[Rfam]
RNA sequence: ACCUUCUCAUGAGCUCCUCUCAAUCGCAUCCAUGAUUCUGUACGGAUUCGCACGAGAAGCAGAGCCAGUGCACAGAUCAAAACAGGCCCACCCUACAUGCUUAUGGGUGUUGCCCAUGUCUGCUGUGCAACAAAU
Numbered sequence: 001a002c003c004u005u006c007u008c009a010u011g012a013g014c015u016c017c018u019c020u021c022a023a024u025c026g027c028a029u030c031c032a033u034g035a036u037u038c039u040g041u042a043c044g045g046a047u048u049c050g051c052a053c054g055a056g057a058a059g060c061a062g063a064g065c066c067a068g069u070g071c072a073c074a075g076a077u078c079a080a081a082a083c084a085g086g087c088c089c090a091c092c093c094u095a096c097a098u099g100c101u102u103a104u105g106g107g108u109g110u111u112g113c114c115c116a117u118g119u120c121u122g123c124u125g126u127g128c129a130a131c132a133a134a135u
Stems, first nucleotide, its partner, number of pairs: 003059006013051002015046003022037004070128006089109004096105002

The family of this 135-nucleotide RNA from Oryzias sinensis is "Small nucleolar RNA SNORA75". The family's consensus secondary structure was predicted with PFOLD. A reference for the family is Ganot et al. (1997), "The family of box ACA small nucleolar RNAs is defined by an evolutionarily conserved secondary structure and ubiquitous sequence elements essential for RNA accumulation", Genes Dev. Lineage of the source: Eukaryota > Teleostomi > Neoteleostei > Adrianichthyidae > Oryzias.